Ascomycota telomerase RNA: a 356-nucleotide part of an RNA from Hymenoscyphus fraxineus.
The base pairs follow the family's consensus structure.
For this family Rfam cites "The common ancestral core of vertebrate and fungal telomerase RNAs" (Qi et al., Nucleic Acids Res, 2013).
Lineage of the source: Eukaryota > Opisthokonta > Ascomycota > saccharomyceta > Hymenoscyphus.
Rfam links the family to the GO terms telomerase catalytic core complex, telomere maintenance via telomerase and telomerase activity.
It scores 108 bits against the family's covariance model.
The family's RNA type in Rfam is non-coding RNA gene.
RNA sequence: GUCAAACAGAGAGAAGCUUGCAUGUGUACGUGGAGAGGCUACUGUGUAUCUCGAGUUCGGUGGUUUCUUGUCCGGUCAGUCGCUGGAUUUCGAAUCAACGCUUUUGUUGGUCCCGGUUAUUUUGGGUGUGAUACGGUUGUGGUCCUGGUUGGUGGGGUUAACGAGGCGCAGAAGAUGGAAGCAAUGGUGAGAUGUAUCCUCUUGUCUCACGCUGCUAAUCUGUUUUCAAGUUCCCUUUCCCUUUCUUCGAGAAACAGUUUAGCGUCCAAAUUGGGACCCAUCUUGCGUUGGAGUCAAAGCUUAGUGCUUGUCUGGUCUGGGUAGCGUUGUACUGUUUGCUUGAGUUUGGGUUCUUG
Number, nucleotide and partner (000 for none) at each position: 001g000002u000003c000004a000005a000006a000007c000008a000009g000010a000011g000012a000013g000014a000015a000016g000017c000018u000019u000020g000021c000022a000023u000024g000025u000026g000027u000028a000029c000030g000031u000032g000033g000034a000035g000036a000037g000038g000039c000040u000041a000042c000043u000044g000045u000046g000047u000048a000049u000050c000051u000052c000053g000054a000055g000056u000057u000058c000059g000060g000061u000062g000063g000064u000065u000066u000067c000068u000069u000070g000071u000072c000073c000074g000075g000076u000077c000078a000079g000080u000081c000082g000083c000084u000085g000086g000087a000088u000089u000090u000091c000092g000093a000094a000095u000096c000097a000098a000099c000100g000101c000102u000103u000104u000105u000106g000107u000108u000109g000110g000111u000112c000113c000114c000115g000116g000117u000118u000119a000120u000121u000122u000123u000124g000125g000126g000127u000128g000129u000130g000131a000132u000133a000134c000135g000136g000137u000138u000139g000140u000141g000142g000143u000144c000145c000146u000147g000148g000149u000150u000151g000152g000153u000154g000155g000156g000157g000158u000159u000160a000161a000162c000163g000164a000165g000166g000167c000168g000169c000170a000171g000172a000173a000174g000175a000176u000177g000178g000179a000180a000181g000182c000183a000184a000185u000186g000187g000188u000189g000190a000191g000192a000193u000194g000195u000196a000197u000198c000199c000200u000201c000202u000203u000204g000205u000206c000207u000208c000209a000210c000211g000212c000213u000214g000215c000216u000217a000218a000219u000220c000221u000222g000223u000224u000225u000226u000227c000228a000229a000230g000231u000232u000233c000234c000235c000236u000237u000238u000239c000240c000241c000242u000243u000244u000245c000246u000247u000248c000249g000250a000251g000252a000253a000254a000255c000256a000257g000258u000259u000260u000261a000262g000263c000264g000265u000266c000267c000268a000269a000270a000271u000272u000273g000274g000275g295276a294277c293278c291279c290280a289281u000282c000283u000284u000285g000286c000287g000288u000289u280290g279291g278292a000293g277294u276295c275296a000297a309298a308299g307300c306301u000302u000303a000304g000305u000306g300307c299308u298309u297310g000311u000312c000313u000314g000315g000316u000317c000318u000319g000320g000321g000322u000323a000324g000325c000326g000327u000328u000329g000330u000331a000332c000333u000334g000335u000336u000337u000338g000339c000340u000341u000342g000343a000344g000345u000346u000347u000348g000349g000350g000351u000352u000353c000354u000355u000356g000